[Rfam]
RNA: Archaeal large subunit ribosomal RNA, nucleotides 1801 to 2171
RNA sequence: CGGGUAUAAAGCGGGCAAGGGAACUCGGCAAAUUAGCACCGUAACUUAGGGAUAAGGUGUGCCUGCGAUAUUAGCGAGGAGCUAGAAUUGCAGGUUGCAAUAACAAGGGGGUCCCGACUGUUUAAUAAAAACACAGGAAGCUGCUAGCCUGAAAAGGUGCGUACAGCUUUUGAAUUCUGGCCAGUGACGGUACCUAAAACCUGGGUUCAACCGGGCUAAGGGCCGUUUAACGCCGGGAGUAACUCUGACUCUCUUAAGGUAGCCAAAUGCCUUGUCGGGUGAGUUCCGACGUGCAUGAAUGGACCAACGAGGGCCCCGCUGUCCCUGUCCGCGACCCGGUGAACCUACAGCGUGGACGAACAGUCCACGGA
Number, nucleotide and partner (000 for none) at each position: 001c338002g337003g336004g335005u000006a000007u000008a000009a000010a000011g332012c331013g330014g329015g328016c327017a326018a000019g324020g323021g322022a000023a000024c000025u000026c000027g000028g000029c000030a000031a000032a000033u000034u000035a000036g060037c059038a058039c057040c056041g000042u000043a000044a000045c050046u000047u000048a000049g000050g045051g000052a000053u000054a000055a000056g040057g039058u038059g037060u036061g095062c094063c093064u092065g091066c090067g089068a088069u087070a000071u000072u000073a000074g000075c000076g000077a000078g000079g000080a000081g000082c000083u000084a000085g000086a000087a069088u068089u067090g066091c065092a064093g063094g062095u061096u100097g000098c000099a000100a096101u000102a000103a000104c000105a000106a000107g000108g317109g316110g315111g314112u313113c312114c311115c309116g308117a000118c000119u133120g132121u131122u000123u000124a000125a000126u000127a000128a000129a000130a000131a121132c120133a119134c000135a000136g171137g170138a169139a168140g167141c166142u165143g164144c161145u000146a000147g158148c157149c156150u155151g000152a000153a000154a000155a150156g149157g148158u147159g000160c000161g144162u000163a000164c143165a142166g141167c140168u139169u138170u137171u136172g000173a000174a000175u303176u302177c301178u000179g234180g233181c232182c000183a000184g231185u230186g227187a226188c225189g224190g223191u000192a000193c222194c221195u220196a000197a000198a000199a000200c215201c214202u213203g212204g211205g000206u000207u000208c000209a000210a000211c204212c203213g202214g201215g200216c000217u000218a000219a000220g195221g194222g193223c190224c189225g188226u187227u186228u000229a000230a185231c184232g181233c180234c179235g253236g252237g251238a250239g249240u248241a000242a000243c000244u000245c000246u000247g000248a240249c239250u238251c237252u236253c235254u258255u000256a000257a000258g254259g000260u000261a000262g000263c000264c000265a000266a000267a000268u000269g000270c000271c000272u000273u000274g290275u289276c288277g287278g286279g285280u000281g000282a000283g000284u000285u279286c278287c277288g276289a275290c274291g000292u000293g000294c000295a000296u000297g000298a000299a000300u000301g177302g176303a175304c000305c000306a000307a000308c116309g115310a000311g114312g113313g112314c111315c110316c109317c108318g000319c000320u000321g000322u021323c020324c019325c000326u017327g016328u015329c014330c013331g012332c011333g000334a000335c004336c003337c002338g001339g000340u000341g000342a000343a000344c000345c000346u000347a000348c000349a000350g000351c369352g368353u367354g366355g365356a000357c000358g000359a000360a000361c000362a000363g000364u000365c355366c354367a353368c352369g351370g000371a000